[Rfam]
RNA: Guanidine-I riboswitch aptamer
Organism: Rhizobium sp. P32RR-XVIII
RNA sequence: UGAGUUGGUGGCUAGGGUUCCGGCGCUUUGUAGAAGUGCGACUGGUCCGAGAGCCACCACCGGCGGAAGAGAAAUUCCGCCGGGUGCACGGCGGGAUAAAAGCCCGGGAGAC
Numbered sequence: 001u002g003a004g005u006u007g008g009u010g011g012c013u014a015g016g017g018u019u020c021c022g023g024c025g026c027u028u029u030g031u032a033g034a035a036g037u038g039c040g041a042c043u044g045g046u047c048c049g050a051g052a053g054c055c056a057c058c059a060c061c062g063g064c065g066g067a068a069g070a071g072a073a074a075u076u077c078c079g080c081c082g083g084g085u086g087c088a089c090g091g092c093g094g095g096a097u098a099a100a101a102g103c104c105c106g107g108g109a110g111a112c
Stems, first nucleotide, its partner, number of pairs: 007058006015048002020045002022042001023039006059085001060083009087107001089110001093105003